Shown here is a 186-nucleotide RNA sequence from Vreelandella zhuhanensis, a member of the family "Group II catalytic intron D1-D4-3". NCBI's taxonomy places the organism under Bacteria, Pseudomonadati, Gammaproteobacteria, Oceanospirillales, Vreelandella. A reference for the family is Lehmann and Schmidt (2003), "Group II introns: structure and catalytic versatility of large natural ribozymes", Crit Rev Biochem Mol Biol.

RNA sequence: UCUCCCGCGAGGGGGAAUCUGAAGGAAGCCCGAGGCAAAACGCUGGCUCGACGGGGGCGCCUAGCCGAACAGAAAGCGGAUACGAGGCGUCAUGGCGGGGUGAGAUGGCAACUAUCAUCAAAGCCCGCUACUUGCACGGAACGCUAUGACGUAUAUCCGACAGGCAUAAGCGGGAAGGUCGCACAC
Numbered sequence: 001u002c003u004c005c006c007g008c009g010a011g012g013g014g015g016a017a018u019c020u021g022a023a024g025g026a027a028g029c030c031c032g033a034g035g036c037a038a039a040a041c042g043c044u045g046g047c048u049c050g051a052c053g054g055g056g057g058c059g060c061c062u063a064g065c066c067g068a069a070c071a072g073a074a075a076g077c078g079g080a081u082a083c084g085a086g087g088c089g090u091c092a093u094g095g096c097g098g099g100g101u102g103a104g105a106u107g108g109c110a111a112c113u114a115u116c117a118u119c120a121a122a123g124c125c126c127g128c129u130a131c132u133u134g135c136a137c138g139g140a141a142c143g144c145u146a147u148g149a150c151g152u153a154u155a156u157c158c159g160a161c162a163g164g165c166a167u168a169a170g171c172g173g174g175a176a177g178g179u180c181g182c183a184c185a186c
Stems, first nucleotide, its partner, number of pairs: 001016006028186001032182001035179002041172004046165003050161001077159005087152003091148007098126004104119004